[Rfam]
RNA sequence: AACUGUUUUUGCGACUGACGGAAUGAGGUGGGGCAAAACCACCGGGAAACAAAGACAGAUCAAAUGCCGACCGUCUGGGCAGUGCCA
Numbered sequence: 001a002a003c004u005g006u007u008u009u010u011g012c013g014a015c016u017g018a019c020g021g022a023a024u025g026a027g028g029u030g031g032g033g034c035a036a037a038a039c040c041a042c043c044g045g046g047a048a049a050c051a052a053a054g055a056c057a058g059a060u061c062a063a064a065u066g067c068c069g070a071c072c073g074u075c076u077g078g079g080c081a082g083u084g085c086c087a
Base pairs, nucleotide, nucleotide: 003058004057005056006055007054008053009052010051011050015046016045017075018074019073020072021071028042029041030040031039065081066080067079068078
Rfam assigns this 87-nucleotide sequence from Clostridium aminobutyricum to the family "ZMP/ZTP riboswitch aptamer (pfl RNA motif)". The base pairs follow the family's consensus structure, which is taken from published work. A search with the family's covariance model found it, with a score of 64 bits. Rfam links the family to the GO terms one-carbon metabolic process and regulation of purine nucleotide biosynthetic process.